[Rfam]
RNA sequence: UCGGCAUGGUGAUGAUGUUUUUUUUAAUGUUUUCAUAUGAUUAUUCAUAUGAUGAAUACUAUCCUCCUACUCAUUCUGA
Numbered sequence: 001u002c003g004g005c006a007u008g009g010u011g012a013u014g015a016u017g018u019u020u021u022u023u024u025u026a027a028u029g030u031u032u033u034c035a036u037a038u039g040a041u042u043a044u045u046c047a048u049a050u051g052a053u054g055a056a057u058a059c060u061a062u063c064c065u066c067c068u069a070c071u072c073a074u075u076c077u078g079a
Base pairs, nucleotide, nucleotide: 006074007073008072009071033055034054
About this RNA
The family of this 79-nucleotide RNA from Cajanus cajan is "Small nucleolar RNA Z105". Its family is annotated with nucleolus and RNA processing in the Gene Ontology. The family has 11 seed sequences and 621 matches in Rfam 15.1. On this family, see Chen et al., Nucleic Acids Res 2003: "The high diversity of snoRNAs in plants: identification and comparative study of 120 snoRNA genes from Oryza sativa".